Vault RNA: a 102-nucleotide RNA from Chlorocebus sabaeus.
RNA sequence: AUGUCAGCUUUAGUUCAAGCAGUUCCUUCCCCUUGCUGGACUUUCCAUCCAUCUAAUCCCUGAGCUCGGGUUCCAGACCUGCAGGUGCCUUCUGACCCUUAA
Numbered sequence: 001a002u003g004u005c006a007g008c009u010u011u012a013g014u015u016c017a018a019g020c021a022g023u024u025c026c027u028u029c030c031c032c033u034u035g036c037u038g039g040a041c042u043u044u045c046c047a048u049c050c051a052u053c054u055a056a057u058c059c060c061u062g063a064g065c066u067c068g069g070g071u072u073c074c075a076g077a078c079c080u081g082c083a084g085g086u087g088c089c090u091u092c093u094g095a096c097c098c099u100u101a102a
Stems, first nucleotide, its partner, number of pairs: 003096005013086003019082004027076002
Rfam describes the family as follows. This family of RNAs are found as part of the enigmatic vault ribonucleoprotein complex. The match comes from Rfam's covariance-model search (38 bits).